Shown here is a 66-nucleotide sequence from Bombyx mori, a member of the family "mir-2774 microRNA precursor family". The organism belongs to Bombyx, within Eukaryota.
[Rfam]
RNA sequence: ACAAUAUCGGACCGUCGGUCUACCGAGUUAUUACACCCGCUUGUUGGAAGAUUUUCCCUUCGUCGU
Numbered sequence: 001a002c003a004a005u006a007u008c009g010g011a012c013c014g015u016c017g018g019u020c021u022a023c024c025g026a027g028u029u030a031u032u033a034c035a036c037c038c039g040c041u042u043g044u045u046g047g048a049a050g051a052u053u054u055u056c057c058c059u060u061c062g063u064c065g066u
Stems, first nucleotide, its partner, number of pairs: 004063002009057003014052003019048004024043005